[Rfam]
RNA sequence: AAUUGCAAAGAUAAAAACACUGUUCGGUUGGUAGUCCGGACGUAACUAUAGUUAUAAGUAACCUGCCUCCUUGGUUGUCCUUUCUUUGUUAAUACUUA
Numbered sequence: 001a002a003u004u005g006c007a008a009a010g011a012u013a014a015a016a017a018c019a020c021u022g023u024u025c026g027g028u029u030g031g032u033a034g035u036c037c038g039g040a041c042g043u044a045a046c047u048a049u050a051g052u053u054a055u056a057a058g059u060a061a062c063c064u065g066c067c068u069c070c071u072u073g074g075u076u077g078u079c080c081u082u083u084c085u086u087u088g089u090u091a092a093u094a095c096u097u098a
Base pairs, nucleotide, nucleotide: 005089006088007087008086009085010084011083022041023040024039025038026037027036042055043054044053045052046051065075066074067073
This 98-nucleotide RNA sequence from Anaerofustis stercorihominis belongs to the Rfam family "azaaromatic riboswitch aptamer (yjdF RNA)". The match comes from Rfam's covariance-model search (89 bits).